[Rfam]
RNA sequence: CCUGCGGAGUGUUAAAACAAACGAGAGUAGCGAGCAAGUGGCAAAAUCGGACACGUAGAAACAGAAA
Numbered sequence: 001c002c003u004g005c006g007g008a009g010u011g012u013u014a015a016a017a018c019a020a021a022c023g024a025g026a027g028u029a030g031c032g033a034g035c036a037a038g039u040g041g042c043a044a045a046a047u048c049g050g051a052c053a054c055g056u057a058g059a060a061a062c063a064g065a066a067a
Base pairs, nucleotide, nucleotide: 002064003063004062009054010053011052012051013050022049023048024047030042031041034039